[Rfam]
RNA sequence: CCUGCUCGAAAUCCUACUUCCACCUCUCCGUGGUGAGCAGGGGUAACAGAUUAUAUCUGGCGAAUAGAAGAG
Numbered sequence: 001c002c003u004g005c006u007c008g009a010a011a012u013c014c015u016a017c018u019u020c021c022a023c024c025u026c027u028c029c030g031u032g033g034u035g036a037g038c039a040g041g042g043g044u045a046a047c048a049g050a051u052u053a054u055a056u057c058u059g060g061c062g063a064a065u066a067g068a069a070g071a072g
Stems, first nucleotide, its partner, number of pairs: 001041007022034003047059005
Shown here is a 72-nucleotide sequence from Mytilus coruscus, a member of the family "HDV ribozyme from F. prausnitzii". The literature on the family includes a 2009 paper in Science by Webb et al., "Widespread occurrence of self-cleaving ribozymes". Rfam 15.1 lists 3,803 matches to the family in 91 species. Its family is annotated with catalytic activity in the Gene Ontology.